[Rfam]
RNA sequence: CUGCCGGUGGGAGUCCGGUCCGGGUAGCUGUCAGGAGGACCGGUAGCAGGCUGGCCGCUUGGUUUGGAAACGGGCAGGGUCGAAGCCCAGCGUCGAAAGCCCCGUUGGGGGAAGCAACUGAGCGGUCCGUAACGCGA
Numbered sequence: 001c002u003g004c005c006g007g008u009g010g011g012a013g014u015c016c017g018g019u020c021c022g023g024g025u026a027g028c029u030g031u032c033a034g035g036a037g038g039a040c041c042g043g044u045a046g047c048a049g050g051c052u053g054g055c056c057g058c059u060u061g062g063u064u065u066g067g068a069a070a071c072g073g074g075c076a077g078g079g080u081c082g083a084a085g086c087c088c089a090g091c092g093u094c095g096a097a098a099g100c101c102c103c104g105u106u107g108g109g110g111g112a113a114g115c116a117a118c119u120g121a122g123c124g125g126u127c128c129g130u131a132a133c134g135c136g137a
Stems, first nucleotide, its partner, number of pairs: 020043004050091005055082001057080004065072002100110004114130002
Rfam assigns this 137-nucleotide sequence from Mycobacterium tuberculosis to the family "Group II catalytic intron D1-D4-4". A reference for the family is Bonen and Vogel (2001), "The ins and outs of group II introns", Trends Genet. Rfam links the family to the GO term Group II intron splicing. Rfam describes the family as follows. Group II introns are found in rRNA, tRNA and mRNA of organelles in fungi, plants and protists, and also in mRNA in bacteria. Taxonomically the source falls in Mycobacterium tuberculosis (Bacteria, Actinomycetes, Mycobacteriales, Mycobacterium tuberculosis complex). The sequence is in the family's curated seed alignment.